[Rfam]
RNA sequence: CGAAGAAGUCAGCCGAGUCUUGCUGUUGACUACCGAUAGUCAGCAAGAGCGGGGGAACCAAAUUUUUGGGGCUAAUCUCUUUUGAUAAAUAAUAAAGAGAAGGGUAUCUCUCAACCCCAGCCCGUCAGCUAACUCCGUAGGCAUUGGGAGGAGACUGA
Numbered sequence: 001c002g003a004a005g006a007a008g009u010c011a012g013c014c015g016a017g018u019c020u021u022g023c024u025g026u027u028g029a030c031u032a033c034c035g036a037u038a039g040u041c042a043g044c045a046a047g048a049g050c051g052g053g054g055g056a057a058c059c060a061a062a063u064u065u066u067u068g069g070g071g072c073u074a075a076u077c078u079c080u081u082u083u084g085a086u087a088a089a090u091a092a093u094a095a096a097g098a099g100a101a102g103g104g105u106a107u108c109u110c111u112c113a114a115c116c117c118c119a120g121c122c123c124g125u126c127a128g129c130u131a132a133c134u135c136c137g138u139a140g141g142c143a144u145u146g147g148g149a150g151g152a153g154a155c156u157g158a
Base pairs, nucleotide, nucleotide: 012142013141014140018048019047020046021045022044023043024042025041049138050137051136052135053134054133059068060067069123070122071121077099078098079097080096081095082094102117103116104115105114
Rfam assigns this 158-nucleotide sequence from Planktothrix tepida to the family "c-di-AMP riboswitch aptamer (ydaO/yuaA leader)". This family represents a conserved RNA structure found upstream of the ydaO and yuaA genes in Bacillus subtilis and related genes in other bacteria. The ydaO/yuaA element is thought to act as a genetic 'off' switch for the ydaO and yuaA genes in its native state. It is believed that the element may be triggered during osmotic shock leading to activation of ydaO, a predicted amino acid transporter gene, and members of the yuaA-yubG operon which code for KtrA and KtrB K+ transporters. Lineage of the source: Bacteria > Cyanophyceae > Oscillatoriophycideae > Microcoleaceae > Planktothrix tepida.